Annotation: SAM riboswitch aptamer (S box leader): a 119-nucleotide sequence from Thermomonas haemolytica. NCBI's taxonomy places the organism under Bacteria, Pseudomonadati, Gammaproteobacteria, Lysobacteraceae, Thermomonas. The family's consensus secondary structure is taken from published work. Gene Ontology term of the family: regulation of gene expression.
RNA sequence: CAUCCAUCGAGACCGGCGGAGGGACAGGCCCUUUGAUGCCGGGGCAACCUGCGGGCGGCGCAAGCCGCCGCGAGGUGCCAAAUCCUGCGGGGACCUGAGCGUCUGCCGGAAGAUGGUUG
Numbered sequence: 001c002a003u004c005c006a007u008c009g010a011g012a013c014c015g016g017c018g019g020a021g022g023g024a025c026a027g028g029c030c031c032u033u034u035g036a037u038g039c040c041g042g043g044g045c046a047a048c049c050u051g052c053g054g055g056c057g058g059c060g061c062a063a064g065c066c067g068c069c070g071c072g073a074g075g076u077g078c079c080a081a082a083u084c085c086u087g088c089g090g091g092g093a094c095c096u097g098a099g100c101g102u103c104u105g106c107c108g109g110a111a112g113a114u115g116g117u118u119g
Base pairs, nucleotide, nucleotide: 001119002118004116005115006114007113008112013042014041015040016039017038021031022030023029025087026086027085028084043079044078045077046076048075049074050072051071052070053069083111088108089107090106092104